The record is a 45-nucleotide sequence from Hoylesella marshii, which matches "Acido-Lenti-1 RNA" in Rfam.
It is annotated as a small RNA.
Lineage of the source: Bacteria > Pseudomonadati > Bacteroidia > Prevotellaceae > Hoylesella marshii.
The base pairs follow the family's consensus structure, which is taken from published work.
RNA sequence: CCCAAGGCGUUGCCUUGGGCUGACAUCUUGCGCGCCUGCAGCGCU
Numbered sequence: 001c002c003c004a005a006g007g008c009g010u011u012g013c014c015u016u017g018g019g020c021u022g023a024c025a026u027c028u029u030g031c032g033c034g035c036c037u038g039c040a041g042c043g044c045u
Base pairs, nucleotide, nucleotide: 001019002018003017004016005015006014007013008012032044033043034042035041